[Rfam]
RNA sequence: UGGCGCUUGAACAGGGACCUGAAGCGAGGAAUCCAUUGAGAAGAAGGGGCCAAAGGGCGGUCGGCCAUGCUGGGACAAAAGAAAUUAAACUCUUCCGAUCCACCGCUUGGGAACCUGCGGCGUCAGAAUCCCGAAGAGUAAGUGGCUUCGAAAUGGGACAAGAAUUAAGUCAGCAUCAAAUUUAUGUGGGACAAUUAAAAAGGCUUUGAAUCUGAGUAAAGGUUAAAGGUAAUGAUUUGUUUUAAAUUUUUGAUUUUGUAAAAGACACUUGCUCUU
Numbered sequence: 001u002g003g004c005g006c007u008u009g010a011a012c013a014g015g016g017a018c019c020u021g022a023a024g025c026g027a028g029g030a031a032u033c034c035a036u037u038g039a040g041a042a043g044a045a046g047g048g049g050c051c052a053a054a055g056g057g058c059g060g061u062c063g064g065c066c067a068u069g070c071u072g073g074g075a076c077a078a079a080a081g082a083a084a085u086u087a088a089a090c091u092c093u094u095c096c097g098a099u100c101c102a103c104c105g106c107u108u109g110g111g112a113a114c115c116u117g118c119g120g121c122g123u124c125a126g127a128a129u130c131c132c133g134a135a136g137a138g139u140a141a142g143u144g145g146c147u148u149c150g151a152a153a154u155g156g157g158a159c160a161a162g163a164a165u166u167a168a169g170u171c172a173g174c175a176u177c178a179a180a181u182u183u184a185u186g187u188g189g190g191a192c193a194a195u196u197a198a199a200a201a202g203g204c205u206u207u208g209a210a211u212c213u214g215a216g217u218a219a220a221g222g223u224u225a226a227a228g229g230u231a232a233u234g235a236u237u238u239g240u241u242u243u244a245a246a247u248u249u250u251u252g253a254u255u256u257u258g259u260a261a262a263a264g265a266c267a268c269u270u271g272c273u274c275u276u
Stems, first nucleotide, its partner, number of pairs: 006029003034047001036045002090138003093134002099128001100126001104122004110118001143160002147157004166208003169204003213252003217245001220238006261276002264273001266271001